The record is a 66-nucleotide RNA sequence from Alloprevotella tannerae, which matches "Bacteroidetes FopS (family of paralogous sRNAs)" in Rfam. A search with the family's covariance model found it, with a score of 58 bits. The family's RNA type in Rfam is small RNA. Taxonomically the source falls in Alloprevotella tannerae (Bacteria, Pseudomonadati, Prevotellaceae, Alloprevotella). From the family's description: The RNA-binding protein RbpB and BTncRNA_FopS sRNA are involved in the post-transcription regulation of polysaccharide utilisation loci (PUL). FopS sRNAs function as post-transcriptional repressors by binding to the vicinity of the start codon of the first mRNA of target PUL polycistrons, typically corresponding to the cognate SusC homolog, impeding translation of the respective glycan transporter.
[Rfam]
Nucleotides: 066
Stems, first nucleotide, its partner, number of pairs: 037054002040051004
Number, partner (000 for none) and nucleotide at each position: 001000g002000u003000u004000u005000u006000c007000a008000u009000g010000g011000u012000a013000u014000u015000a016000g017000a018000u019000u020000u021000a022000a023000g024000g025000u026000u027000a028000g029000u030000a031000a032000a033000g034000a035000u036000u037054g038053g039000u040051u041050g042049u043048c044000g045000u046000g047000a048043g049042a050041c051040a052000c053038u054037c055000a056000a057000u058000c059000u060000u061000u062000u063000u064000a065000u066000g